[Rfam]
RNA sequence: CUGCACCCUGGUUCAAGUAAUCCAGGAUAGGCUGUGUGCGUCCAGGUUGGCCUAUUCAUGAUUACUUGCACUGGAGGGCUG
Number, nucleotide and partner (000 for none) at each position: 001c000002u000003g079004c078005a000006c000007c000008c074009u073010g072011g071012u070013u000014c068015a067016a066017g065018u064019a063020a062021u061022c060023c000024a000025g057026g056027a055028u054029a053030g052031g051032c050033u049034g000035u000036g000037u000038g000039c000040g000041u000042c000043c000044a000045g000046g000047u000048u000049g033050g032051c031052c030053u029054a028055u027056u026057c025058a000059u000060g022061a021062u020063u019064a018065c017066u016067u015068g014069c000070a012071c011072u010073g009074g008075a000076g000077g000078g004079c003080u000081g000
RNA: mir-26 microRNA precursor family